[Rfam]
RNA sequence: UAUCUUUGCACCCGAAUUGGGACAGACUCAAUUCAUACAUAAUAAUCAUUUAAAUAAUAUUGGAAUG
Dot-bracket structure: .............((((((.........)))))).................................
Numbered sequence: 001u002a003u004c005u006u007u008g009c010a011c012c013c014g015a016a017u018u019g020g021g022a023c024a025g026a027c028u029c030a031a032u033u034c035a036u037a038c039a040u041a042a043u044a045a046u047c048a049u050u051u052a053a054a055u056a057a058u059a060u061u062g063g064a065a066u067g
Stems, first nucleotide, its partner, number of pairs: 014034006
This 67-nucleotide sequence belongs to the Rfam family "S15-Flavobacteria ribosomal protein leader". The base pairs follow the family's consensus structure, which is taken from published work. Clan: Ribosomal Protein S15 Leader clan. Rfam classes the family as a cis-regulatory leader. It is one of the family's seed sequences.